[Rfam]
Rfam assigns this 184-nucleotide sequence from Vibrio aquimaris to the family "6S / SsrS RNA". The family has 150 seed sequences and 5,006 matches in Rfam 15.1. It scores 129 bits against the family's covariance model.

RNA sequence: UUUACCCUGGAGUGUUCGUUAGGGGAUUAAGUCCCUGAGCCGAUAAGCAAUACUUAAGGGUUGGUACUUGAUAGCUAUUGAGCAAGCUCGGCUUGAACCGAGAAGCCUACGGUUACCAUUGCCGAUCCGCCUUGAACCUGCUGGUUCAAGGGUCCCAAAUCUCCAACGGCACUCUGGGGUACCC
Numbered sequence: 001u002u003u004a005c006c007c008u009g010g011a012g013u014g015u016u017c018g019u020u021a022g023g024g025g026a027u028u029a030a031g032u033c034c035c036u037g038a039g040c041c042g043a044u045a046a047g048c049a050a051u052a053c054u055u056a057a058g059g060g061u062u063g064g065u066a067c068u069u070g071a072u073a074g075c076u077a078u079u080g081a082g083c084a085a086g087c088u089c090g091g092c093u094u095g096a097a098c099c100g101a102g103a104a105g106c107c108u109a110c111g112g113u114u115a116c117c118a119u120u121g122c123c124g125a126u127c128c129g130c131c132u133u134g135a136a137c138c139u140g141c142u143g144g145u146u147c148a149a150g151g152g153u154c155c156c157a158a159a160u161c162u163c164c165a166a167c168g169g170c171a172c173u174c175u176g177g178g179g180u181a182c183c184c
Stems, first nucleotide, its partner, number of pairs: 003181013017168003031153004036148006058128003062124005069118002072115005082106002087102005